[Rfam]
Nucleotides: 079
Stems, first nucleotide, its partner, number of pairs: 001077001003075005009069009021060008029051002031048003
Number, partner (000 for none) and nucleotide at each position: 001077g002000c003075u004074g005073a006072u007071g008000c009069u010068g011067g012066c013065g014064g015063u016062g017061a018000u019000g020000c021060c022059g023058a024057u025056g026055g027054u028053g029051c030050g031048a032047g033046c034000u035000g036000a037000a038000a039000a040000u041000g042000g043000g044000c045000u046033g047032c048031u049000a050030c051029g052000u053028c054027a055026u056025c057024g058023u059022c060021g061017u062016c063015a064014u065013c066012g067011u068010u069009a070000u071007c072006a073005u074004c075003a076000u077001c078000a079000u